[Rfam]
RNA sequence: ACAAAGGCUCUUUUAAGAGCCACCCACCCGGUCUGUAAAGAGCAA
Numbered sequence: 001a002c003a004a005a006g007g008c009u010c011u012u013u014u015a016a017g018a019g020c021c022a023c024c025c026a027c028c029c030g031g032u033c034u035g036u037a038a039a040g041a042g043c044a045a
Stems, first nucleotide, its partner, number of pairs: 006021006
This 45-nucleotide sequence from Austrofundulus limnaeus belongs to the Rfam family "Histone 3' UTR stem-loop". The mRNAs of metazoan histone genes lack a poly-A tail. 3' end processing occurs at a site between a highly conserved stem-loop (modelled by this family) and a purine rich region around 20 nts downstream (the histone downstream element, or HDE). The match comes from Rfam's covariance-model search (36 bits). Lineage of the source: Eukaryota > Eumetazoa > Teleostomi > Ctenosquamata > Austrofundulus.